[Rfam]
RNA sequence: AAGUAACUCCGAGUCUUCGGCCAGUUUGGACGAGGAUAGGAGUACCGGCUGGUUGGCACAGCCCGGAGUCUACCUUCACGACUUGACACGCGGAUUCUUACCGCGUGACCAAGUGGUAGACUGCAAACCAUAAUAUCCCAACGCUCGGGAAUCCUCGCCCUUCAGGGCGGGGA
Dot-bracket structure: ..(...((((..(((.(((.((.....)).))).))).))))...)(((((.......)))))...(((((.(.(.............(((((.......))))).....)...)..))))).............((((.(...).)))).(((((((((....)))))))))
A member of the RNA family "Sense overlapping transcript RNA 0042 (sot)" from Natronosalvus rutilus, 173 nucleotides long. It is annotated as a small RNA. NCBI's taxonomy places the organism under Archaea, Methanobacteriota, Halobacteria, Halobacteriales, Natronosalvus. About the family: It is associated with IS1341-type transposase (tnpB) genes, at the 3'-end in H. salinarum NRC-1. The tetraloop structural motif may be functional. A search with the family's covariance model found it, with a score of 91 bits.